The record is a 245-nucleotide RNA from Funneliformis mosseae, which matches "ACEA small nucleolar RNA U3" in Rfam. It scores 67 bits against the family's covariance model. Its family is annotated with RNA processing and nucleolus in the Gene Ontology. From the family's description: Small nucleolar RNAs (snoRNAs) are involved in the processing and modification of rRNA in the nucleolus. There are two main classes of snoRNAs: the box C/D class, and the box H/ACA class. U3 snoRNA is a member of the box C/D class. Indeed, the box C/D element is a subset of the six short sequence elements found in all U3 snoRNAs, namely boxes A, A', B, C, C', and D. The U3 snoRNA secondary structure is characterised by a small 5' domain (with boxes A and A'), and a larger 3' domain (with boxes B, C, C', and D), the two domains being linked by a single-stranded hinge. Boxes B and C form the B/C motif, which appears to be exclusive to U3 snoRNAs, and boxes C' and D form the C'/D motif. The latter is functionally similar to the C/D motifs found in other snoRNAs. The 5' domain and the hinge region act as a pre-rRNA-binding domain. The 3' domain has conserved protein-binding sites. Both the box B/C and box C'/D motifs are sufficient for nuclear retention of U3 snoRNA. The box C'/D motif is also necessary for nucleolar localisation, stability and hyper-methylation of U3 snoRNA. Both box B/C and C'/D motifs are involved in specific protein interactions and are necessary for the rRNA processing functions of U3 snoRNA. Clan: U3 clan. The source organism's lineage runs through Eukaryota, Opisthokonta, Glomeromycota, Glomerales and Funneliformis.
[Rfam]
RNA sequence: UCGACUGUACUUUACAGGAUCUGUAUAUAGUCAGUCAACCCGUCUUUGUUUUCCAACUUAGACACAACGUUUAGGCUGGAUGAUGAAUCAUAGUGCUCUGCCCGUAAAGGGAUGUGUGGUUUAUCAAAUUUUUCUUGAUUUCUUCUUCGGAGGUUUUCUAGGGGAUAAUUUGAUUUCCAGUUGAUGAACUUGCCUAUAGCUAUUCCAAGUUAUAUGGCGAGGGCGGAAGCACAGUCUGACAGUCC
Numbered sequence: 001u002c003g004a005c006u007g008u009a010c011u012u013u014a015c016a017g018g019a020u021c022u023g024u025a026u027a028u029a030g031u032c033a034g035u036c037a038a039c040c041c042g043u044c045u046u047u048g049u050u051u052u053c054c055a056a057c058u059u060a061g062a063c064a065c066a067a068c069g070u071u072u073a074g075g076c077u078g079g080a081u082g083a084u085g086a087a088u089c090a091u092a093g094u095g096c097u098c099u100g101c102c103c104g105u106a107a108a109g110g111g112a113u114g115u116g117u118g119g120u121u122u123a124u125c126a127a128a129u130u131u132u133u134c135u136u137g138a139u140u141u142c143u144u145c146u147u148c149g150g151a152g153g154u155u156u157u158c159u160a161g162g163g164g165a166u167a168a169u170u171u172g173a174u175u176u177c178c179a180g181u182u183g184a185u186g187a188a189c190u191u192g193c194c195u196a197u198a199g200c201u202a203u204u205c206c207a208a209g210u211u212a213u214a215u216g217g218c219g220a221g222g223g224c225g226g227a228a229g230c231a232c233a234g235u236c237u238g239a240c241a242g243u244c245c
Stems, first nucleotide, its partner, number of pairs: 001038001003036001005034002009031003016026001018024001042063004048057003074244005093232005098226006107191003117179003121173003193216001195214002198211004